[Rfam]
This 138-nucleotide RNA from Rattus norvegicus belongs to the Rfam family "Small nucleolar RNA SNORA43". Rfam classes the family as an H/ACA-box small nucleolar RNA. It scores 120 bits against the family's covariance model. Pairs were carried over by alignment from the consensus structure, which was predicted with RNAfold. Rfam's curators write: ACA43 is a member of the H/ACA class of snoRNA that guide the sites of modification of uridines to pseudouridines.
RNA sequence: CUUUCCUUUAAAAUCUGAGAACAACCACAGGCAUGGCUCAGCUUUGCCUGUGACAUCGGGGAAAAGAGCAAGUGGCUAUUUCUACACUCAGUGUUCAGAAGCCAGUGAGCACUAAGAAUGGUUUGUAGCCUGACAUUU
Numbered sequence: 001c002u003u004u005c006c007u008u009u010a011a012a013a014u015c016u017g018a019g020a021a022c023a024a025c026c027a028c029a030g031g032c033a034u035g036g037c038u039c040a041g042c043u044u045u046g047c048c049u050g051u052g053a054c055a056u057c058g059g060g061g062a063a064a065a066g067a068g069c070a071a072g073u074g075g076c077u078a079u080u081u082c083u084a085c086a087c088u089c090a091g092u093g094u095u096c097a098g099a100a101g102c103c104a105g106u107g108a109g110c111a112c113u114a115a116g117a118a119u120g121g122u123u124u125g126u127a128g129c130c131u132g133a134c135a136u137u138u
Stems, first nucleotide, its partner, number of pairs: 003063006010056001027051004074130003082121003087116002092111006
Dot-bracket structure: ..((((((.(................((((.................))))....).))))))..........(((.....(((..((...((((((........))))))...))..)))......)))........

Lineage of the source: Eukaryota > Euteleostomi > Dipnotetrapodomorpha > Myomorpha > Rattus. The family is grouped with related families in Rfam's "SNORA17 clan".